[Rfam]
RNA sequence: UUUUAUUUUAAAAGGGUGAGAUUUUGUUUUGUCUGAGAAAAUCUCUCUGUUUUAGACUGAGG
Numbered sequence: 001u002u003u004u005a006u007u008u009u010a011a012a013a014g015g016g017u018g019a020g021a022u023u024u025u026g027u028u029u030u031g032u033c034u035g036a037g038a039a040a041a042u043c044u045c046u047c048u049g050u051u052u053u054a055g056a057c058u059g060a061g062g
Stems, first nucleotide, its partner, number of pairs: 002061004007056007015048002018045008027036002
RNA: mir-553 microRNA precursor family